This 70-nucleotide RNA sequence from Octodon degus belongs to the Rfam family "Small nucleolar RNA SNORD56". On this family, see Galardi et al., Mol Cell Biol 2002: "Purified box C/D snoRNPs are able to reproduce site-specific 2'-O-methylation of target RNA in vitro". Rfam links the family to the GO terms nucleolus and RNA processing. The organism belongs to Octodon, within Eukaryota. Rfam classes the family as a C/D-box small nucleolar RNA. The family's consensus secondary structure was predicted with PFOLD. The match comes from Rfam's covariance-model search (43 bits).
RNA sequence: UUAGAGUGAUGCUAAUGUUUUCAAUUAACAGAUUGCUCCUAGAGAGAGUUGAUAAAUUGGGUCUGAGUGA
Numbered sequence: 001u002u003a004g005a006g007u008g009a010u011g012c013u014a015a016u017g018u019u020u021u022c023a024a025u026u027a028a029c030a031g032a033u034u035g036c037u038c039c040u041a042g043a044g045a046g047a048g049u050u051g052a053u054a055a056a057u058u059g060g061g062u063c064u065g066a067g068u069g070a
Base pairs, nucleotide, nucleotide: 002069003068008026009025010024